Annotation:
The family of this 67-nucleotide RNA is "6A RNA". The sequence is in the family's curated seed alignment.
[Rfam]
RNA sequence: AUCUUUGGUCGUAGAGUCGCGACCAACUGGGGUCAUCACCCCUUAAACUAAAAAACGCUCACUAGGA
Numbered sequence: 001a002u003c004u005u006u007g008g009u010c011g012u013a014g015a016g017u018c019g020c021g022a023c024c025a026a027c028u029g030g031g032g033u034c035a036u037c038a039c040c041c042c043u044u045a046a047a048c049u050a051a052a053a054a055a056c057g058c059u060c061a062c063u064a065g066g067a
Base pairs, nucleotide, nucleotide: 006025007024008023009022010021011020014060015059016058017057